[Rfam]
7SK RNA: a 303-nucleotide sequence. It is annotated as a non-coding RNA gene.
RNA sequence: GGAUGUGAGGGUGAUCUGGCUAUGACAUCUGUCACCCCAGUGAUUGCCACUAUUGAUUCUGCUGAUCUAGCUGGCUAGGUGGUGUCCCCUUCCUCCCUCACCACUCCAUGUGCAUCCCUCCUGAAGCUGUGUGCUCAGUUGAAGAGGAGGACCAUCCCCAAUAGAGGAGGACCAGUCUUCGGCUAAGGGUAUACGAGUAGCUGCGCUCCCCUGCUAGAAUCUCCAAACAAGCUCUCAAGGUCCAGAGACAAGAUGUGAACUUCAUGUCUCAAUUGAUGAUCACGUGGUUGUGUGGUGGUGCAG
Dot-bracket structure: (((.(((((((.((...((....((((((.(((.(((.(..((((((.............)).))))).)..))...))))))))).)).))..)))))))...))).......((((((((((.((.....))))))(((....(((......))).)))..)))).))...............................(....(.(.(..(.......(.(....................).)....)..).).)....)........(((.(.(((((......))..))).)..)))
Numbered sequence: 001g002g003a004u005g006u007g008a009g010g011g012u013g014a015u016c017u018g019g020c021u022a023u024g025a026c027a028u029c030u031g032u033c034a035c036c037c038c039a040g041u042g043a044u045u046g047c048c049a050c051u052a053u054u055g056a057u058u059c060u061g062c063u064g065a066u067c068u069a070g071c072u073g074g075c076u077a078g079g080u081g082g083u084g085u086c087c088c089c090u091u092c093c094u095c096c097c098u099c100a101c102c103a104c105u106c107c108a109u110g111u112g113c114a115u116c117c118c119u120c121c122u123g124a125a126g127c128u129g130u131g132u133g134c135u136c137a138g139u140u141g142a143a144g145a146g147g148a149g150g151a152c153c154a155u156c157c158c159c160a161a162u163a164g165a166g167g168a169g170g171a172c173c174a175g176u177c178u179u180c181g182g183c184u185a186a187g188g189g190u191a192u193a194c195g196a197g198u199a200g201c202u203g204c205g206c207u208c209c210c211c212u213g214c215u216a217g218a219a220u221c222u223c224c225a226a227a228c229a230a231g232c233u234c235u236c237a238a239g240g241u242c243c244a245g246a247g248a249c250a251a252g253a254u255g256u257g258a259a260c261u262u263c264a265u266g267u268c269u270c271a272a273u274u275g276a277u278g279a280u281c282a283c284g285u286g287g288u289u290g291u292g293u294g295g296u297g298g299u300g301c302a303g
Stems, first nucleotide, its partner, number of pairs: 001107003005101007013092002018089002024086006031080003035074002037070001039068001042067004046062002115170002117167004121138004126134002139161003146157003202264001207259001209257001211255001214252001222247001224245001273303003277298001279296003282291002

7SK was discovered as an abundant small nuclear RNA in the mid-70s but a possible function has only recently been suggested. Two independent studies have found that 7SK RNA binds the CDK9/cyclin T complex (known as elongation factor P-TEFb). P-TEFb activates transcription by phosphorylating the C-terminal domain of RNA polymerase II. This process is negatively regulated by the 7SK RNP. The secondary structure of 7SK RNA shown here was proposed by Wasserman and Steitz on the basis of chemical modification and enzymatic cleavage experiments. This family contains a number of annotated pseudogenes and 7SK derived repeats.